[Rfam]
RNA: Small Cajal body-specific RNA 7
RNA sequence: UGGAAAUGAUGAAACAGAGAUAACUGGGUGCAUUUGAAUGGUGUGUGAUUUGAGCAUUAUUAAAUUUAUUAUCAAAUUAAGUAAACAUCUAAAAUGGGGGGGGGGGGGUGAAGGGGCGCGUGUGUGUGUGUAUGCAUGCAUGGGUGUAAAUGUAAAGGCUAAGGAAAGGGAGCCCUGACUGACAAUGCAGAUAUCGGAGUGCAUCUGAGGCUGUUGUAAAAAUACAUGUUUAUUACAGCUUUGCCAAUGAUUAUAACUCAGGAACAGCUCACUUACCUGCCUCACACCCCUACAGUCUCUAACAGGUUCAUAAAUGUGGACCUGUGAUCUGAUCCAU
Numbered sequence: 001u002g003g004a005a006a007u008g009a010u011g012a013a014a015c016a017g018a019g020a021u022a023a024c025u026g027g028g029u030g031c032a033u034u035u036g037a038a039u040g041g042u043g044u045g046u047g048a049u050u051u052g053a054g055c056a057u058u059a060u061u062a063a064a065u066u067u068a069u070u071a072u073c074a075a076a077u078u079a080a081g082u083a084a085a086c087a088u089c090u091a092a093a094a095u096g097g098g099g100g101g102g103g104g105g106g107g108g109u110g111a112a113g114g115g116g117c118g119c120g121u122g123u124g125u126g127u128g129u130g131u132a133u134g135c136a137u138g139c140a141u142g143g144g145u146g147u148a149a150a151u152g153u154a155a156a157g158g159c160u161a162a163g164g165a166a167a168g169g170g171a172g173c174c175c176u177g178a179c180u181g182a183c184a185a186u187g188c189a190g191a192u193a194u195c196g197g198a199g200u201g202c203a204u205c206u207g208a209g210g211c212u213g214u215u216g217u218a219a220a221a222a223u224a225c226a227u228g229u230u231u232a233u234u235a236c237a238g239c240u241u242u243g244c245c246a247a248u249g250a251u252u253a254u255a256a257c258u259c260a261g262g263a264a265c266a267g268c269u270c271a272c273u274u275a276c277c278u279g280c281c282u283c284a285c286a287c288c289c290c291u292a293c294a295g296u297c298u299c300u301a302a303c304a305g306g307u308u309c310a311u312a313a314a315u316g317u318g319g320a321c322c323u324g325u326g327a328u329c330u331g332a333u334c335c336a337u
Stems, first nucleotide, its partner, number of pairs: 001336004213239007221230003
Dot-bracket structure: ((((................................................................................................................................................................................................................(((((((.(((....)))..))))))).............................................................................................)))).